Shown here is a 108-nucleotide sequence from Streptomyces sp. CC53, a member of the family "Streptomyces RNA 4115". Identified by deep sequencing of transcriptome at the end of exponential growth phase. Sequencing size consistent with notrthern blot size. Taxonomically the source falls in Streptomyces (Bacteria, Bacillati, Actinomycetota, Streptomycetaceae). The base pairs follow the family's consensus structure.
[Rfam]
RNA sequence: GCGUGGGUCGGCCCGCUGAGCAGGGACCAGCGGGCUGGGGGACACCGUCGCCUCAUUCCCCGCAGGCGACGGACGGUCCGGGAGGCGAGCAGCGUCUCCCGGACCGAG
Number, nucleotide and partner (000 for none) at each position: 001g000002c106003g000004u000005g000006g000007g074008u073009c037010g036011g035012c034013c033014c032015g031016c030017u029018g028019a000020g000021c000022a000023g000024g000025g000026a000027c000028c018029a017030g016031c015032g014033g013034g012035c011036u010037g009038g043039g000040g000041g000042a000043c038044a000045c072046c071047g070048u069049c068050g067051c066052c065053u064054c000055a000056u000057u000058c000059c000060c000061c000062g000063c000064a053065g052066g051067c050068g049069a048070c047071g046072g045073a008074c007075g105076g104077u103078c102079c101080g100081g099082g098083a097084g096085g095086c094087g093088a000089g000090c000091a000092g000093c087094g086095u085096c084097u083098c082099c081100c080101g079102g078103a077104c076105c075106g002107a000108g000